[Rfam]
RNA sequence: GGUUGGGCAGUUUGUAUAAACUGUUUCAAGUUUUUGAGCUUUAGGGUGGAGAGCU
Numbered sequence: 001g002g003u004u005g006g007g008c009a010g011u012u013u014g015u016a017u018a019a020a021c022u023g024u025u026u027c028a029a030g031u032u033u034u035u036g037a038g039c040u041u042u043a044g045g046g047u048g049g050a051g052a053g054c055u
Stems, first nucleotide, its partner, number of pairs: 003029003006025006037055006
RNA: Na+ riboswitch aptamer (DUF1646)